[Rfam]
RNA sequence: UGGCGCCCAAUGUGGCUCGAGAACGGGGGAUUUCGUGAGGGAGGCCGCUCCAAAACAAGCGUGCUUUCAAUAAAUUCUUGGAGGAACAGUCAGCGCGGGAACCUGCCGCGUUCAACUCAGCCUCUGUGAGUGAGCAACCAUUAUGAGUCAGGAAAUAAGCCAACAUGAGUUAUUUGUUGAAAGUUUAAGGCAUUAAAGGCACAAGGAGUAAAGGUUAAAAUUAAGCAUUUGUGUCAAUAUUUUGAAUAUAUUAAACAAGUUU
Numbered sequence: 001u002g003g004c005g006c007c008c009a010a011u012g013u014g015g016c017u018c019g020a021g022a023a024c025g026g027g028g029g030a031u032u033u034c035g036u037g038a039g040g041g042a043g044g045c046c047g048c049u050c051c052a053a054a055a056c057a058a059g060c061g062u063g064c065u066u067u068c069a070a071u072a073a074a075u076u077c078u079u080g081g082a083g084g085a086a087c088a089g090u091c092a093g094c095g096c097g098g099g100a101a102c103c104u105g106c107c108g109c110g111u112u113c114a115a116c117u118c119a120g121c122c123u124c125u126g127u128g129a130g131u132g133a134g135c136a137a138c139c140a141u142u143a144u145g146a147g148u149c150a151g152g153a154a155a156u157a158a159g160c161c162a163a164c165a166u167g168a169g170u171u172a173u174u175u176g177u178u179g180a181a182a183g184u185u186u187a188a189g190g191c192a193u194u195a196a197a198g199g200c201a202c203a204a205g206g207a208g209u210a211a212a213g214g215u216u217a218a219a220a221u222u223a224a225g226c227a228u229u230u231g232u233g234u235c236a237a238u239a240u241u242u243u244g245a246a247u248a249u250a251u252u253a254a255a256c257a258a259g260u261u262u
Stems, first nucleotide, its partner, number of pairs: 006029003012024002034047001035045002081124004089116001090114001094110005131150003135147001138145001156195003159191003202244005208238002212230004

The family of this 262-nucleotide RNA from Octodon degus is "Mason-Pfizer monkey virus packaging signal". The family has 9 seed sequences and 2,921 matches in Rfam 15.1. From the family's description: This family represents a group of sequences that are related to the Mason-Pfizer monkey virus (MPMV) packaging signal. The packaging signal is located in the 5' UTR and is required for specific RNA encapsidation. Rfam classes the family as a cis-regulatory element. Gene Ontology term of the family: viral genome packaging.